A member of the RNA family "Y RNA" from Saimiri boliviensis, 109 nucleotides long. By type it is a non-coding RNA gene.
RNA sequence: GGCUGGUCCGAAGGUAGUAACUUAUCUCAAUUGGUUGUUCAUAGCUACAGAUUGGACUCCUUGUUCGACUCUUUCUCCCUUUCUCACUACUGUACUUGACUAGUCUAAA
Numbered sequence: 001g002g003c004u005g006g007u008c009c010g011a012a013g014g015u016a017g018u019a020a021c022u023u024a025u026c027u028c029a030a031u032u033g034g035u036u037g038u039u040c041a042u043a044g045c046u047a048c049a050g051a052u053u054g055g056a057c058u059c060c061u062u063g064u065u066c067g068a069c070u071c072u073u074u075c076u077c078c079c080u081u082u083c084u085c086a087c088u089a090c091u092g093u094a095c096u097u098g099a100c101u102a103g104u105c106u107a108a109a
Stems, first nucleotide, its partner, number of pairs: 001105008010097002014093002016088003020084001033070002036067002